RNA: Small Cajal body specific RNA 11
RNA sequence: AAGUCCAUGCUUAUUAUUGCUUUCCUGCUUGCCACUGUAGCAGGAGGGCCAGAGGCAGGACUAAGAGCAAAUCUUCCUCUCAGAUUAGGAGGGCUGUCCUGAGAUGGGGCUGACUCUUAAAGGCACAAGAGGACACU
Numbered sequence: 001a002a003g004u005c006c007a008u009g010c011u012u013a014u015u016a017u018u019g020c021u022u023u024c025c026u027g028c029u030u031g032c033c034a035c036u037g038u039a040g041c042a043g044g045a046g047g048g049c050c051a052g053a054g055g056c057a058g059g060a061c062u063a064a065g066a067g068c069a070a071a072u073c074u075u076c077c078u079c080u081c082a083g084a085u086u087a088g089g090a091g092g093g094c095u096g097u098c099c100u101g102a103g104a105u106g107g108g109g110c111u112g113a114c115u116c117u118u119a120a121a122g123g124c125a126c127a128a129g130a131g132g133a134c135a136c137u
Base pairs, nucleotide, nucleotide: 002062003061004060005059006058010055011054019049020048021047023045024044025043026042027041028040076132077131078130079129080128083124085122086121089118090117091116092115093114095112096110097109098108099107100106101105